[Rfam]
RNA sequence: GAAGCAAGCUAGACAGUCGCUGGUUAUUUUAAUAAAAUUAUAACGAGAGGAAGGUCCGGACUCCAUAGAGCAAGAUGGCGGCUAACAGCCGUCCGCCGAAAACUAAAGUAUAAGGCGAGGAAUAGGACCACAGAGACGAGCGUAUUUAAAUUACGGUGAAACGCGGUAACCUCCAUCUGGAGCAAUUCCAAAUAGUACGCAUUGAUGUUGCUCGCGGAGCGUACGGGUAGGGAGCUUGAAUGUUAAAGUAAUUUAACAUCUAGAAGAAUGACUGUCAUAACAACUGUUAAAACAAAAUCCGGCCUAUAAGCUUGCUUCAAAA
Numbered sequence: 001g002a003a004g005c006a007a008g009c010u011a012g013a014c015a016g017u018c019g020c021u022g023g024u025u026a027u028u029u030u031a032a033u034a035a036a037a038u039u040a041u042a043a044c045g046a047g048a049g050g051a052a053g054g055u056c057c058g059g060a061c062u063c064c065a066u067a068g069a070g071c072a073a074g075a076u077g078g079c080g081g082c083u084a085a086c087a088g089c090c091g092u093c094c095g096c097c098g099a100a101a102a103c104u105a106a107a108g109u110a111u112a113a114g115g116c117g118a119g120g121a122a123u124a125g126g127a128c129c130a131c132a133g134a135g136a137c138g139a140g141c142g143u144a145u146u147u148a149a150a151u152u153a154c155g156g157u158g159a160a161a162c163g164c165g166g167u168a169a170c171c172u173c174c175a176u177c178u179g180g181a182g183c184a185a186u187u188c189c190a191a192a193u194a195g196u197a198c199g200c201a202u203u204g205a206u207g208u209u210g211c212u213c214g215c216g217g218a219g220c221g222u223a224c225g226g227g228u229a230g231g232g233a234g235c236u237u238g239a240a241u242g243u244u245a246a247a248g249u250a251a252u253u254u255a256a257c258a259u260c261u262a263g264a265a266g267a268a269u270g271a272c273u274g275u276c277a278u279a280a281c282a283a284c285u286g287u288u289a290a291a292a293c294a295a296a297a298u299c300c301g302g303c304c305u306a307u308a309a310g311c312u313u314g315c316u317u318c319a320a321a322a
Stems, first nucleotide, its partner, number of pairs: 001318010011307001012276007020047002023044005052305003056302005061182004068213004073178005078092005093119001094117004120173002125171002127167003141155002144151002186233004195224006206216003240259008
RNA: Bacterial RNase P class A
Organism: Candidatus Profftella armatura